[Rfam]
Small nucleolar RNA SNORD94: a 139-nucleotide RNA sequence from Astyanax mexicanus. Rfam 15.1 lists 802 matches to the family in 622 species. The base pairs follow the family's consensus structure, which was predicted with RNAalifold. By type it is a C/D-box small nucleolar RNA.
RNA sequence: AGGGCAGUGAUGAGAAGCGCAGGGGUACGGACCUCAGCUGAUAAUGGGAGCUGAGUGUUGGUGUCUCAUCCCAGAUCAGUAGGCAUGUGGUCAACUGUCUGGAGGGCACCAACAUGAAACAGUCGCUUUCCUGAGCCCU
Number, nucleotide and partner (000 for none) at each position: 001a139002g138003g137004g136005c135006a000007g000008u000009g000010a000011u000012g000013a000014g000015a000016a000017g000018c000019g000020c000021a000022g000023g000024g000025g000026u000027a000028c000029g000030g000031a000032c000033c000034u000035c000036a000037g000038c000039u000040g000041a000042u000043a000044a000045u000046g000047g000048g000049a000050g000051c000052u000053g000054a000055g000056u000057g000058u000059u000060g000061g000062u000063g000064u000065c000066u000067c000068a000069u000070c000071c000072c000073a000074g000075a000076u000077c000078a000079g000080u000081a000082g000083g000084c000085a000086u000087g000088u000089g000090g000091u000092c000093a000094a000095c000096u000097g000098u000099c000100u000101g000102g000103a000104g000105g000106g000107c000108a000109c000110c000111a000112a000113c000114a000115u000116g000117a000118a000119a000120c000121a000122g000123u000124c000125g000126c000127u000128u000129u000130c000131c000132u000133g000134a000135g005136c004137c003138c002139u001